[Rfam]
RNA sequence: CUUUUUUGCUAUCUGAGAUAUUCAAAGAUUCGAACCUGCAGCAGGUUCGAGUUGAGCGCAGCGAAACAACGGAGCCGCUCGCGGCGACGGCCCGAAGGGCGAGCGAAGCGAGUCAUCCUGCACGACCCACCA
Numbered sequence: 001c002u003u004u005u006u007u008g009c010u011a012u013c014u015g016a017g018a019u020a021u022u023c024a025a026a027g028a029u030u031c032g033a034a035c036c037u038g039c040a041g042c043a044g045g046u047u048c049g050a051g052u053u054g055a056g057c058g059c060a061g062c063g064a065a066a067c068a069a070c071g072g073a074g075c076c077g078c079u080c081g082c083g084g085c086g087a088c089g090g091c092c093c094g095a096a097g098g099g100c101g102a103g104c105g106a107a108g109c110g111a112g113u114c115a116u117c118c119u120g121c122a123c124g125a126c127c128c129a130c131c132a
Base pairs, nucleotide, nucleotide: 015123017121021115031101032100035098046096047095048094049093053063054062070089071088076086077085078084
RNA: RtT RNA
Organism: Shigella sonnei